[Rfam]
RNA sequence: AGCGCAGAAGAAGAAGCCGGCUGUGGCUGACUGGUGCCGCGUCGGUGCCGACACUGCGCUAGA
Numbered sequence: 001a002g003c004g005c006a007g008a009a010g011a012a013g014a015a016g017c018c019g020g021c022u023g024u025g026g027c028u029g030a031c032u033g034g035u036g037c038c039g040c041g042u043c044g045g046u047g048c049c050g051a052c053a054c055u056g057c058g059c060u061a062g063a
Stems, first nucleotide, its partner, number of pairs: 002059006016046005
A member of the RNA family "Trypanosomatid snoRNA TB9Cs1H1" from Trypanosoma conorhini, 63 nucleotides long. A search with the family's covariance model found it, with a score of 73 bits. The literature on the family includes a 2005 paper in RNA by Liang et al., "A genome-wide analysis of C/D and H/ACA-like small nucleolar RNAs in Trypanosoma brucei reveals a trypanosome-specific pattern of rRNA modification". Rfam links the family to the GO terms nucleolus and RNA processing.